[Rfam]
RNA sequence: GGCGAUAAAUGGUCAUCGGAAUAAGCCUUUCGGACCCGGGGGCGGUACCCGGCGCCUCCACCCAAGCGCGUUGCCAAGAAAAGCGCGCUUCGGCGGGGGCGAAAUAGGAUCGACGGGGGGUGUAAAGGGUGUGCUUUUGCUCGGCAUGAUACCGCCGUUAUCGGGUCAAACUUGUAGUUGCAAACGACAACUAUGCUCCGGUUGCUGUCGCCGCUUAA
Numbered sequence: 001g002g003c004g005a006u007a008a009a010u011g012g013u014c015a016u017c018g019g020a021a022u023a024a025g026c027c028u029u030u031c032g033g034a035c036c037c038g039g040g041g042g043c044g045g046u047a048c049c050c051g052g053c054g055c056c057u058c059c060a061c062c063c064a065a066g067c068g069c070g071u072u073g074c075c076a077a078g079a080a081a082a083g084c085g086c087g088c089u090u091c092g093g094c095g096g097g098g099g100c101g102a103a104a105u106a107g108g109a110u111c112g113a114c115g116g117g118g119g120g121u122g123u124a125a126a127g128g129g130u131g132u133g134c135u136u137u138u139g140c141u142c143g144g145c146a147u148g149a150u151a152c153c154g155c156c157g158u159u160a161u162c163g164g165g166u167c168a169a170a171c172u173u174g175u176a177g178u179u180g181c182a183a184a185c186g187a188c189a190a191c192u193a194u195g196c197u198c199c200g201g202u203u204g205c206u207g208u209c210g211c212c213g214c215u216u217a218a
Stems, first nucleotide, its partner, number of pairs: 001141005014131004026120003030116003036052005053101007142157004
RNA: permuted transfer-messenger RNA